[Rfam]
RNA: ASpks TB sRNA
RNA sequence: CUUCAGCGAGCCGAGCCACAGCGGGGACCGCCCCGCGCGCUCCUUGCCGUAGGUGGCGAGCAGGGCCCCCGCCUC
Numbered sequence: 001c002u003u004c005a006g007c008g009a010g011c012c013g014a015g016c017c018a019c020a021g022c023g024g025g026g027a028c029c030g031c032c033c034c035g036c037g038c039g040c041u042c043c044u045u046g047c048c049g050u051a052g053g054u055g056g057c058g059a060g061c062a063g064g065g066c067c068c069c070c071g072c073c074u075c
Stems, first nucleotide, its partner, number of pairs: 015028001016024002034071002038065001043060003047056003